[Rfam]
RNA sequence: AGCAGUACGGAGUAUUUUUUAAUAUUUACCUCUCUCUUGAGGUUAUGUUCAGAUUCUACACACAGCAGUGCAACAUCUGUCAGUACCUCUGGUGUCC
Numbered sequence: 001a002g003c004a005g006u007a008c009g010g011a012g013u014a015u016u017u018u019u020u021a022a023u024a025u026u027u028a029c030c031u032c033u034c035u036c037u038u039g040a041g042g043u044u045a046u047g048u049u050c051a052g053a054u055u056c057u058a059c060a061c062a063c064a065g066c067a068g069u070g071c072a073a074c075a076u077c078u079g080u081c082a083g084u085a086c087c088u089c090u091g092g093u094g095u096c097c
Stems, first nucleotide, its partner, number of pairs: 005056001007054001012046003016042003020039003059094003063091003068086004073080002

Shown here is a 97-nucleotide RNA from Enterobacter sp. 638, a member of the family "ES056 sRNA". Rfam describes the family as follows. Differentially expressed under several chemical stress and fermentation conditions. Its family is annotated with fermentation in the Gene Ontology. It is annotated as a small RNA. A search with the family's covariance model found it, with a score of 45 bits. The literature on the family includes a 2015 paper in BMC Genomics by Rau et al., "Differential expression of small RNAs under chemical stress and fed-batch fermentation in E. coli".